RNA sequence: CUUGAAGUCAGUCACAUUGGCCAGGGAUCAGCCUUGCUCUUUUGCAUGGUGUACUUUCUGGUUGAUGGGUCAGCAUCAAUUUUGACUGCUGGAAAAAGGCUUGAGGAAUGUGGCAGCUCUGGCUGUGUUAUAGCUUCAUGUCACAUACAGUGGUUGGGAUUGAGGAACUCAGCAUGCCACAAGGCUGGGUUUUGACCAUGUUCAUGCUUAUGAUGCUGGCAUAAUGGCUUUAAGCAACCCAUCUUGAAACAUGG
Dot-bracket structure: ((((((((((....((((((((.....................................))))))))...(((((((......................................................................................................................................)))))))......))))))))))....((((........))))

Background:
Eukaryotic large subunit ribosomal RNA: a 254-nucleotide part of an RNA from Leucoagaricus sp. SymC.cos. Pairs were carried over by alignment from the consensus structure, which is taken from published work. Taxonomically the source falls in Leucoagaricus (Eukaryota, Fungi, Agaricomycetes, Agaricomycetidae). Its Rfam clan is "LSU clan". Rfam links the family to the GO terms ribosome and structural constituent of ribosome.